[Rfam]
Nucleotides: 046
Stems, first nucleotide, its partner, number of pairs: 006021006
Number, partner (000 for none) and nucleotide at each position: 001000a002000a003000a004000a005000c006021g007020g008019c009018u010017c011016u012000u013000u014000u015000c016011a017010g018009a019008g020007c021006c022000a023000c024000c025000a026000c027000a028000u029000u030000u031000u032000c033000a034000c035000a036000a037000a038000a039000g040000a041000g042000a043000u044000a045000u046000g